Group II catalytic intron D1-D4-2: a 118-nucleotide RNA sequence from Geodia barretti.
Lineage of the source: Eukaryota > Opisthokonta > Metazoa > Heteroscleromorpha > Geodia.
On this family, see Bonen and Vogel, Trends Genet 2001: "The ins and outs of group II introns".
The base pairs follow the family's consensus structure.

[Rfam]
RNA sequence: GAGGGUAGGCCCCUCGGAGCCGCCCGGCAGGGGGAGGCUCCAAACCGCCGUGCGCUGCUUCGGUCAAGAGCCGAGGUGGUAAGCGUCACGGAAACGGCGCGGCGUGACCGCGUCAGGU
Numbered sequence: 001g002a003g004g005g006u007a008g009g010c011c012c013c014u015c016g017g018a019g020c021c022g023c024c025c026g027g028c029a030g031g032g033g034g035a036g037g038c039u040c041c042a043a044a045c046c047g048c049c050g051u052g053c054g055c056u057g058c059u060u061c062g063g064u065c066a067a068g069a070g071c072c073g074a075g076g077u078g079g080u081a082a083g084c085g086u087c088a089c090g091g092a093a094a095c096g097g098c099g100c101g102g103c104g105u106g107a108c109c110g111c112g113u114c115a116g117g118u
Stems, first nucleotide, its partner, number of pairs: 001015005016041006023034003046117001048091005054080002057077003061073004096114006
Dot-bracket structure: (((((.....)))))((((((.(((......))).))))))....(.(((((.((.(((.((((.....)))).))).))......)))))....((((((.......))))))..).